[Rfam]
RNA sequence: AGGCUUGCAGAGAGAGAGGCAGGGUCUGAUCCCCUGCCUCCAUGGCAGCUGUUGAUCAGCCACUGCCCCUCUGUUUCUCUCCA
Numbered sequence: 001a002g003g004c005u006u007g008c009a010g011a012g013a014g015a016g017a018g019g020c021a022g023g024g025u026c027u028g029a030u031c032c033c034c035u036g037c038c039u040c041c042a043u044g045g046c047a048g049c050u051g052u053u054g055a056u057c058a059g060c061c062a063c064u065g066c067c068c069c070u071c072u073g074u075u076u077c078u079c080u081c082c083a
Base pairs, nucleotide, nucleotide: 010075011074013072014071015070016069018067019066020065021064022063024061026059027058028057029056030055031054034051036049037048
Background: Rfam assigns this 83-nucleotide RNA sequence from Myotis myotis to the family "mir-574 microRNA precursor family". The organism belongs to Myotis, within Eukaryota. The family's consensus secondary structure was predicted with RNAalifold. Rfam links the family to the GO terms RISC complex and miRNA-mediated post-transcriptional gene silencing.